The record is a 60-nucleotide RNA from Humibacter ginsenosidimutans, which matches "msiK RNA" in Rfam. The organism belongs to Humibacter, within Bacteria. The match comes from Rfam's covariance-model search (63 bits). The family's RNA type in Rfam is cis-regulatory element.
[Rfam]
RNA sequence: AUACAACAUCCAUCACAACGGAUCGUCCGGCACGUACCUGCCGGUGAAGGAGACAUAGAA
Numbered sequence: 001a002u003a004c005a006a007c008a009u010c011c012a013u014c015a016c017a018a019c020g021g022a023u024c025g026u027c028c029g030g031c032a033c034g035u036a037c038c039u040g041c042c043g044g045u046g047a048a049g050g051a052g053a054c055a056u057a058g059a060a
Stems, first nucleotide, its partner, number of pairs: 009051003013047003027044006